[Rfam]
RNA: tRNA
RNA sequence: GGAACGGUAGUUCAGUUGGUUAGAAUACCGGCCUGUCACGCCGGGGGUCGCGGGUUCGAGUCCCGUCCGUUCCG
Numbered sequence: 001g002g003a004a005c006g007g008u009a010g011u012u013c014a015g016u017u018g019g020u021u022a023g024a025a026u027a028c029c030g031g032c033c034u035g036u037c038a039c040g041c042c043g044g045g046g047g048u049c050g051c052g053g054g055u056u057c058g059a060g061u062c063c064c065g066u067c068c069g070u071u072c073c074g
Base pairs, nucleotide, nucleotide: 001073002072003071004070005069006068007067010026011025012024013023028044029043030042031041032040050066051065052064053063054062